[Rfam]
RNA sequence: GUGUGAACGAAAAGAAAAACAUACGGAUUCCCACUAAUGCACAAAAAUCUGAUUUUAUAACUUGCUAUUUUCUGACAUAC
Numbered sequence: 001g002u003g004u005g006a007a008c009g010a011a012a013a014g015a016a017a018a019a020c021a022u023a024c025g026g027a028u029u030c031c032c033a034c035u036a037a038u039g040c041a042c043a044a045a046a047a048u049c050u051g052a053u054u055u056u057a058u059a060a061c062u063u064g065c066u067a068u069u070u071u072c073u074g075a076c077a078u079a080c
Base pairs, nucleotide, nucleotide: 001080002079003078004077005076

The record is an 80-nucleotide sequence from Taxus chinensis, which matches "Small nucleolar RNA R12" in Rfam. Rfam 15.1 lists 992 matches to the family in 220 species. On this family, see Chen et al., Nucleic Acids Res 2003: "The high diversity of snoRNAs in plants: identification and comparative study of 120 snoRNA genes from Oryza sativa". The base pairs follow the family's consensus structure, which was predicted with PFOLD. Rfam links the family to the GO terms nucleolus and RNA processing. snoR12 is a C/D box small nucleolar RNA, which acts as a methylation guide for 25S ribosomal RNA in plants. snoR12 has been alternatively named snoZ44 in Arabidopsis and snoZ131 in rice. A search with the family's covariance model found it, with a score of 46 bits.